[Rfam]
RNA sequence: GCCGGUCCUCGGUAGUGGCUUACGGGGGGUUCGCCCCCGUGGGCUUCGAUCGAUGGCCGGC
Numbered sequence: 001g002c003c004g005g006u007c008c009u010c011g012g013u014a015g016u017g018g019c020u021u022a023c024g025g026g027g028g029g030u031u032c033g034c035c036c037c038c039g040u041g042g043g044c045u046u047c048g049a050u051c052g053a054u055g056g057c058c059g060g061c
Stems, first nucleotide, its partner, number of pairs: 001061007009053005017045012
Rfam assigns this 61-nucleotide RNA from Saccharopolyspora rectivirgula to the family "Actino-pnp RNA". It is annotated as a cis-regulatory element. Lineage of the source: Bacteria > Bacillati > Actinomycetota > Pseudonocardiaceae > Saccharopolyspora. A search with the family's covariance model found it, with a score of 71 bits.